RNA: 6S / SsrS RNA
Organism: Wolbachia endosymbiont of Pentalonia nigronervosa
RNA sequence: GGGGGUCUGUGCUAUGCGUUAUGAGUUAAGUCAAAUUUCCCGAGCGAUAAUAUUUCAUCAAGGGAAUUGCCUCUGCCAGUUUUGUUAAAAUUGGCACGUGAUGCCCACCUUAAUUUGAGGUCUCAGGAACAAGCUAAGGCUGACGGUAGACAUGGACCCUAU
Numbered sequence: 001g002g003g004g005g006u007c008u009g010u011g012c013u014a015u016g017c018g019u020u021a022u023g024a025g026u027u028a029a030g031u032c033a034a035a036u037u038u039c040c041c042g043a044g045c046g047a048u049a050a051u052a053u054u055u056c057a058u059c060a061a062g063g064g065a066a067u068u069g070c071c072u073c074u075g076c077c078a079g080u081u082u083u084g085u086u087a088a089a090a091u092u093g094g095c096a097c098g099u100g101a102u103g104c105c106c107a108c109c110u111u112a113a114u115u116u117g118a119g120g121u122c123u124c125a126g127g128a129a130c131a132a133g134c135u136a137a138g139g140c141u142g143a144c145g146g147u148a149g150a151c152a153u154g155g156a157c158c159c160u161a162u
Stems, first nucleotide, its partner, number of pairs: 002160010012149004017145003037129004042124003045120001062106003066102005075095007